The family of this 98-nucleotide sequence from Papaver nudicaule is "MIR394 microRNA precursor family".
RNA sequence: CUAACAGAAUUGUUUUGGCAUUCUGUCCACCUCCAUAUUUUAAUUUCUUUUUCUUCUUGUUAAUGGAGGUGGGCAUACUGCCAACAGAGCUCUGUUAG
Numbered sequence: 001c002u003a004a005c006a007g008a009a010u011u012g013u014u015u016u017g018g019c020a021u022u023c024u025g026u027c028c029a030c031c032u033c034c035a036u037a038u039u040u041u042a043a044u045u046u047c048u049u050u051u052u053c054u055u056c057u058u059g060u061u062a063a064u065g066g067a068g069g070u071g072g073g074c075a076u077a078c079u080g081c082c083a084a085c086a087g088a089g090c091u092c093u094g095u096u097a098g
Stems, first nucleotide, its partner, number of pairs: 011088001015084006024075011